[Rfam]
RNA: mir-87 microRNA precursor family
RNA sequence: AUCCGGCCGCCUGAUACUUUCGUCUCAACCUCGCUGUCAGAUUGGUCGUAGGUGAGCAAAGUUUCAGGUGUGCCGGAAC
Numbered sequence: 001a002u003c004c005g006g007c008c009g010c011c012u013g014a015u016a017c018u019u020u021c022g023u024c025u026c027a028a029c030c031u032c033g034c035u036g037u038c039a040g041a042u043u044g045g046u047c048g049u050a051g052g053u054g055a056g057c058a059a060a061g062u063u064u065c066a067g068g069u070g071u072g073c074c075g076g077a078a079c
Base pairs, nucleotide, nucleotide: 002077003076004075005074006073007072008070009069010068011067012066013065014064016062017061018060019059020058024056025055026054027053029052030051031050